RNA sequence: AUUCGACAAAGGUAAACCCUGAGCGAUCAGGGGGCGCAAAGGAAAGGGUCUUGUAGCCGUGAACAGUAUUUGUGAAUAGUGUUAGUAUACUUAACCAGACACUUACACUCAUAACUGACACGAAGAAAUAAGAUAGCCUUACUGCCGAA
Numbered sequence: 001a002u003u004c005g006a007c008a009a010a011g012g013u014a015a016a017c018c019c020u021g022a023g024c025g026a027u028c029a030g031g032g033g034g035c036g037c038a039a040a041g042g043a044a045a046g047g048g049u050c051u052u053g054u055a056g057c058c059g060u061g062a063a064c065a066g067u068a069u070u071u072g073u074g075a076a077u078a079g080u081g082u083u084a085g086u087a088u089a090c091u092u093a094a095c096c097a098g099a100c101a102c103u104u105a106c107a108c109u110c111a112u113a114a115c116u117g118a119c120a121c122g123a124a125g126a127a128a129u130a131a132g133a134u135a136g137c138c139u140u141a142c143u144g145c146c147g148a149a
Stems, first nucleotide, its partner, number of pairs: 012037002017032006040143002043140001045139003048134007
Rfam assigns this 149-nucleotide RNA from Candidatus Jettenia caeni to the family "c-di-GMP-I riboswitch aptamer". A search with the family's covariance model found it, with a score of 46 bits. Lineage of the source: Bacteria > Pseudomonadati > Candidatus Brocadiales > Candidatus Brocadiaceae > Candidatus Jettenia.